RNA sequence: AAGCGUUUUUCAGGAGAGAGUCUGUCGGCACAGAUUUUGUAUCAAACCCUAUUGGUGAUACAAACUGACAACUGCCAUACGACCACCGAAGGCGCAUCCACCCUGCCAAUCGCUCAGGUAAAAGGACUGAAAAACACAU
Numbered sequence: 001a002a003g004c005g006u007u008u009u010u011c012a013g014g015a016g017a018g019a020g021u022c023u024g025u026c027g028g029c030a031c032a033g034a035u036u037u038u039g040u041a042u043c044a045a046a047c048c049c050u051a052u053u054g055g056u057g058a059u060a061c062a063a064a065c066u067g068a069c070a071a072c073u074g075c076c077a078u079a080c081g082a083c084c085a086c087c088g089a090a091g092g093c094g095c096a097u098c099c100a101c102c103c104u105g106c107c108a109a110u111c112g113c114u115c116a117g118g119u120a121a122a123a124g125g126a127c128u129g130a131a132a133a134a135c136a137c138a139u
Stems, first nucleotide, its partner, number of pairs: 006134008020083003085119003088115002092113003099105001
The family of this 139-nucleotide sequence from Psychrobacter sp. KH172YL61 is "Glycine riboswitch aptamer". Pairs were carried over by alignment from the consensus structure. It scores 54 bits against the family's covariance model. Rfam links the family to the GO term glycine biosynthetic process. The organism belongs to Psychrobacter, within Bacteria.